[Rfam]
Shown here is a 145-nucleotide RNA from Drosophila pseudoobscura, a member of the family "Small nucleolar RNA psi18S-1377".
NCBI's taxonomy places the organism under Eukaryota, Arthropoda, Acalyptratae, Ephydroidea, Sophophora.
It is annotated as an H/ACA-box small nucleolar RNA.
Gene Ontology terms of the family: nucleolus and RNA processing.
The family has 15 seed sequences and 113 matches in Rfam 15.1.
The match comes from Rfam's covariance-model search (123 bits).

RNA sequence: CCGUUCUUGUGUUAUUCACUGGACUCAUCUUAUAGUCCUGUGAUUGUCAAACAGAACGUACAGUAAACUCAAAGCAACUACUCACUCCACAAUGAAAAGUCGACUAUAACCAAGGCUUCAUCAUUACUAAAUGUUUGCUACAGAG
Numbered sequence: 001c002c003g004u005u006c007u008u009g010u011g012u013u014a015u016u017c018a019c020u021g022g023a024c025u026c027a028u029c030u031u032a033u034a035g036u037c038c039u040g041u042g043a044u045u046g047u048c049a050a051a052c053a054g055a056a057c058g059u060a061c062a063g064u065a066a067a068c069u070c071a072a073a074g075c076a077a078c079u080a081c082u083c084a085c086u087c088c089a090c091a092a093u094g095a096a097a098a099g100u101c102g103a104c105u106a107u108a109a110c111c112a113a114g115g116c117u118u119c120a121u122c123a124u125u126a127c128u129a130a131a132u133g134u135u136u137g138c139u140a141c142a143g144a145g
Stems, first nucleotide, its partner, number of pairs: 002058006010049002016043004021038002091125005098117004